[Rfam]
RNA sequence: AAAUCAGCCAAUGGUUGGCUGAUCGCGCUAUCAAGUAAUUGGUGCUUUGGUUACUUGCCUGCUCUCUUUUUAU
Numbered sequence: 001a002a003a004u005c006a007g008c009c010a011a012u013g014g015u016u017g018g019c020u021g022a023u024c025g026c027g028c029u030a031u032c033a034a035g036u037a038a039u040u041g042g043u044g045c046u047u048u049g050g051u052u053a054c055u056u057g058c059c060u061g062c063u064c065u066c067u068u069u070u071u072a073u
Base pairs, nucleotide, nucleotide: 004022005021006020007019008018009017010016011015024061027060032057033056034055035054036053037052038051039050040049

Shown here is a 73-nucleotide RNA from Pelodictyon luteolum, a member of the family "Chlorobi-RRM RNA". The family's RNA type in Rfam is cis-regulatory element. The family's consensus secondary structure is taken from published work.